[Rfam]
RNA sequence: UAGAAAACGGAGACUCAUUGUGUGUCUUUUGUUGGAUAGAACAUAGAGGUAUAACGAAGAGGCCGAGAUAUCGUUUCAGUCGUCAUUUUCUCGGAUUGACGAUUCGAUUGUUGCUCGUCCACAU
Numbered sequence: 001u002a003g004a005a006a007a008c009g010g011a012g013a014c015u016c017a018u019u020g021u022g023u024g025u026c027u028u029u030u031g032u033u034g035g036a037u038a039g040a041a042c043a044u045a046g047a048g049g050u051a052u053a054a055c056g057a058a059g060a061g062g063c064c065g066a067g068a069u070a071u072c073g074u075u076u077c078a079g080u081c082g083u084c085a086u087u088u089u090c091u092c093g094g095a096u097u098g099a100c101g102a103u104u105c106g107a108u109u110g111u112u113g114c115u116c117g118u119c120c121a122c123a124u
Stems, first nucleotide, its partner, number of pairs: 006033003010028005061120002064117004070108004079103007087095002
Small nucleolar RNA snoR111: a 124-nucleotide RNA sequence from Trema orientale. Its family is annotated with nucleolus and RNA processing in the Gene Ontology. By type it is an H/ACA-box small nucleolar RNA. Pairs were carried over by alignment from the consensus structure, which was predicted with WAR. The literature on the family includes a 2002 paper in Curr Biol by Marker et al., "Experimental RNomics: identification of 140 candidates for small non-messenger RNAs in the plant Arabidopsis thaliana".